This 54-nucleotide sequence from Coregonus sp. 'balchen' belongs to the Rfam family "UnaL2 LINE 3' element". NCBI's taxonomy places the organism under Eukaryota, Osteoglossocephalai, Salmoniformes, Salmonidae, Coregonus. Its family is annotated with transposition, RNA-mediated in the Gene Ontology. The eel long interspersed element (LINE) UnaL2 and its partner short interspersed element (SINE) share a conserved 3' tail containing a stem-loop that is critical for their retrotransposition. A search with the family's covariance model found it, with a score of 63 bits. The family's consensus secondary structure is taken from published work.
[Rfam]
RNA sequence: UGCACGCAUGACUGUAAGUCACUUUGGAUAAAUGUGUCUGCUAAAUGGUUUAUA
Numbered sequence: 001u002g003c004a005c006g007c008a009u010g011a012c013u014g015u016a017a018g019u020c021a022c023u024u025u026g027g028a029u030a031a032a033u034g035u036g037u038c039u040g041c042u043a044a045a046u047g048g049u050u051u052a053u054a
Stems, first nucleotide, its partner, number of pairs: 013043001014041003020036003024032002